[Rfam]
RNA sequence: GAAGCACGCCAGACCGUCGCUGGUGCCGUAUGGGAAACCUGGCACUGGAGGAACGUCCGGACUGCACAGGACAGCGUAGGAGGUAAUACCUCUCCACCGUGAGGUGAGGAUCAGAGCAACAGAGACGAGUCGGCUUUUCAUGGCAACGUGAAGGGCCGGGUGAAACGGGCAAUCUCUACGCGCAGCAACACCAAAUAGGCCAGCACAGAGCGAAAGUUCUAUCCCGUGGUUCCGCGGGAAUUGCUGGCGGGUAGGUGGCACCGAGCCGGGUAGGCGACUCCCGGCCCAGAUUAAUGGCGGUCACACUGAGAAUUCUUGUUUCGGCAAGAAGACCCAGCGCACAAAAUCCGGCUUAUCGGCGCGCUUCACAC
Number, nucleotide and partner (000 for none) at each position: 001g367002a366003a365004g364005c363006a000007c361008g360009c359010c358011a356012g302013a301014c300015c299016g298017u297018c296019g000020c048021u047022g046023g045024u044025g043026c042027c041028g040029u000030a000031u000032g000033g000034g000035a000036a000037a000038c000039c000040u028041g027042g026043c025044a024045c023046u022047g021048g020049a000050g000051g000052a000053a354054c000055g352056u000057c351058c350059g349060g348061a347062c185063u184064g183065c182066a000067c000068a000069g232070g231071a230072c229073a000074g181075c180076g179077u178078a177079g093080g092081a091082g090083g089084u000085a000086a000087u000088a000089c083090c082091u081092c080093u079094c108095c106096a105097c104098c103099g000100u000101g000102a000103g098104g097105u096106g095107a000108g094109g176110a175111u000112c000113a000114g174115a173116g170117c169118a000119a000120c000121a000122g000123a000124g000125a000126c000127g000128a000129g000130u000131c159132g000133g000134c154135u153136u000137u152138u151139c150140a149141u148142g147143g000144c000145a000146a000147c142148g141149u140150g139151a138152a137153g135154g134155g000156c000157c000158g000159g131160g000161u000162g000163a000164a000165a000166c000167g000168g000169g117170c116171a000172a000173u115174c114175u110176c109177u078178a077179c076180g075181c074182g065183c064184a063185g062186c000187a000188a000189c257190a256191c255192c254193a000194a000195a000196u000197a000198g000199g248200c247201c246202a245203g244204c243205a000206c000207a000208g000209a000210g000211c000212g000213a000214a000215a000216g000217u000218u000219c000220u000221a000222u000223c238224c237225c236226g235227u234228g000229g072230u071231u070232c069233c000234g227235c226236g225237g224238g223239a000240a000241u000242u000243g204244c203245u202246g201247g200248c199249g000250g000251g000252u000253a000254g192255g191256u190257g189258g000259c000260a000261c000262c000263g000264a000265g285266c284267c283268g282269g281270g280271u000272a279273g278274g000275c000276g000277a000278c273279u272280c270281c269282c268283g267284g266285c265286c000287c000288a000289g000290a000291u000292u000293a000294a000295u000296g018297g017298c016299g015300g014301u013302c012303a000304c000305a000306c000307u000308g000309a000310g000311a000312a000313u000314u000315c000316u000317u000318g000319u000320u000321u000322c000323g000324g000325c000326a000327a000328g000329a000330a000331g000332a000333c000334c000335c000336a000337g000338c000339g000340c000341a000342c000343a000344a000345a000346a000347u061348c060349c059350g058351g057352c055353u000354u053355a000356u011357c000358g010359g009360c008361g007362c000363g005364c004365u003366u002367c001368a000369c000370a000371c000